[Rfam]
RNA sequence: CCUGCGGGCCGUGACUGGCGCAUUGGAGAUGGAUCACCAUCGGGGAGCGGCCCCGUCACGAGGACGCAUGCCGAGCGCCUGGGCCUUCCGC
Numbered sequence: 001c002c003u004g005c006g007g008g009c010c011g012u013g014a015c016u017g018g019c020g021c022a023u024u025g026g027a028g029a030u031g032g033a034u035c036a037c038c039a040u041c042g043g044g045g046a047g048c049g050g051c052c053c054c055g056u057c058a059c060g061a062g063g064a065c066g067c068a069u070g071c072c073g074a075g076c077g078c079c080u081g082g083g084c085c086u087u088c089c090g091c
Stems, first nucleotide, its partner, number of pairs: 006053007015044002017079005029040004068086001070084003
The family of this 91-nucleotide sequence from Micromonospora endolithica is "ZMP/ZTP riboswitch aptamer (pfl RNA motif)". NCBI's taxonomy places the organism under Bacteria, Bacillati, Actinomycetes, Micromonosporales, Micromonospora. Rfam links the family to the GO terms one-carbon metabolic process and regulation of purine nucleotide biosynthetic process.